This 193-nucleotide sequence from Drouetiella hepatica belongs to the Rfam family "c-di-AMP riboswitch aptamer (ydaO/yuaA leader)". The base pairs follow the family's consensus structure.

RNA sequence: AGUCAUAAGCAGUUGAAAGAGAGGUUCAAAGCGGAGGAACCAUAACUUGGGGCGCAUUCUCAAGGAACUGGAAAAGAUAAGGUAGGUUUUAGCUGAAUUCAGCUACUCGACUUCGCUUUUUUAGAAACCUGAAAAAGGGUACCUCUCAACCCUAGCCCGUCAGCUAACUCCGUCGGCACUGAGAGGAGACUGA
Numbered sequence: 001a002g003u004c005a006u007a008a009g010c011a012g013u014u015g016a017a018a019g020a021g022a023g024g025u026u027c028a029a030a031g032c033g034g035a036g037g038a039a040c041c042a043u044a045a046c047u048u049g050g051g052g053c054g055c056a057u058u059c060u061c062a063a064g065g066a067a068c069u070g071g072a073a074a075a076g077a078u079a080a081g082g083u084a085g086g087u088u089u090u091a092g093c094u095g096a097a098u099u100c101a102g103c104u105a106c107u108c109g110a111c112u113u114c115g116c117u118u119u120u121u122u123a124g125a126a127a128c129c130u131g132a133a134a135a136a137g138g139g140u141a142c143c144u145c146u147c148a149a150c151c152c153u154a155g156c157c158c159g160u161c162a163g164c165u166a167a168c169u170c171c172g173u174c175g176g177c178a179c180u181g182a183g184a185g186g187a188g189a190c191u192g193a
Base pairs, nucleotide, nucleotide: 003029031173032172033171034170035169036168041049042048050158051157052156058134060132061131137152138151139150140149